Rfam assigns this 73-nucleotide sequence from Scleropages formosus to the family "Small nucleolar RNA SNORD59". On this family, see Galardi et al., Mol Cell Biol 2002: "Purified box C/D snoRNPs are able to reproduce site-specific 2'-O-methylation of target RNA in vitro". Taxonomically the source falls in Scleropages (Eukaryota, Opisthokonta, Deuterostomia, Neopterygii). The family's consensus secondary structure was predicted with ILM. Rfam classes the family as a C/D-box small nucleolar RNA.
[Rfam]
RNA sequence: CCUCUUGUGAUGUUAACAGCAUGACUUUCGUUCUUCUGAUAAUGCUGAAGCCAGCCAUUCCAGUCUGAGGAGG
Number, nucleotide and partner (000 for none) at each position: 001c073002c072003u071004c000005u069006u000007g000008u000009g000010a000011u000012g000013u000014u000015a000016a000017c000018a000019g000020c000021a000022u000023g000024a000025c000026u000027u000028u000029c000030g000031u000032u000033c000034u000035u000036c000037u000038g000039a000040u000041a000042a000043u000044g000045c000046u000047g000048a000049a000050g000051c000052c000053a000054g000055c000056c000057a000058u000059u000060c000061c000062a000063g000064u000065c000066u000067g000068a000069g005070g000071a003072g002073g001